U5 spliceosomal RNA: a 117-nucleotide RNA from Aquarana catesbeiana.

RNA sequence: UCAGUAUACUUUUUGUUCAGAUUAAAUAAAUCUUAUGUCUUUUACUAAAGAUUUCCAUGAAGAGGAACAGCUAUGAGUUUUCAAUAUGUUUUUGUGUCCUGGUGACUACCACCAGGC
Numbered sequence: 001u002c003a004g005u006a007u008a009c010u011u012u013u014u015g016u017u018c019a020g021a022u023u024a025a026a027u028a029a030a031u032c033u034u035a036u037g038u039c040u041u042u043u044a045c046u047a048a049a050g051a052u053u054u055c056c057a058u059g060a061a062g063a064g065g066a067a068c069a070g071c072u073a074u075g076a077g078u079u080u081u082c083a084a085u086a087u088g089u090u091u092u093u094g095u096g097u098c099c100u101g102g103u104g105a106c107u108a109c110c111a112c113c114a115g116g117c
Stems, first nucleotide, its partner, number of pairs: 003078001005076001010067005016061004028054007096117001098116006
Dot-bracket structure: ..(.(....(((((.((((........(((((((.............)))))))...)))).)))))........).).................(.((((((.......)))))))

Lineage of the source: Eukaryota > Deuterostomia > Chordata > Batrachia > Aquarana. A reference for the family is Zwieb (1997), "The uRNA database", Nucleic Acids Res. By type it is a spliceosomal small nuclear RNA.